[Rfam]
RNA sequence: GCGAGACGGAUGCCCCGCUCGCCGGGCAUGACCGAUAAACUGGUCGACGGUGUGUGCCGAGCGCAGCUCUCGGACGCACCGCCCAUGAUCAGCCAGCAGCCGCUGCAACCCCAGGGAG
Numbered sequence: 001g002c003g004a005g006a007c008g009g010a011u012g013c014c015c016c017g018c019u020c021g022c023c024g025g026g027c028a029u030g031a032c033c034g035a036u037a038a039a040c041u042g043g044u045c046g047a048c049g050g051u052g053u054g055u056g057c058c059g060a061g062c063g064c065a066g067c068u069c070u071c072g073g074a075c076g077c078a079c080c081g082c083c084c085a086u087g088a089u090c091a092g093c094c095a096g097c098a099g100c101c102g103c104u105g106c107a108a109c110c111c112c113a114g115g116g117a118g
Stems, first nucleotide, its partner, number of pairs: 049080006057073005094105004

Streptomyces-metK RNA: a 118-nucleotide RNA.
Pairs were carried over by alignment from the consensus structure, which is taken from published work.